[Rfam]
RNA sequence: CCUGCAGCACCAUGACGGUCUGCCUUGAAGCCAGCUUGCUGGUGAGGCAGACCCGAAGAUUUGGCGUG
Numbered sequence: 001c002c003u004g005c006a007g008c009a010c011c012a013u014g015a016c017g018g019u020c021u022g023c024c025u026u027g028a029a030g031c032c033a034g035c036u037u038g039c040u041g042g043u044g045a046g047g048c049a050g051a052c053c054c055g056a057a058g059a060u061u062u063g064g065c066g067u068g
Stems, first nucleotide, its partner, number of pairs: 001068001003066003017053010032041003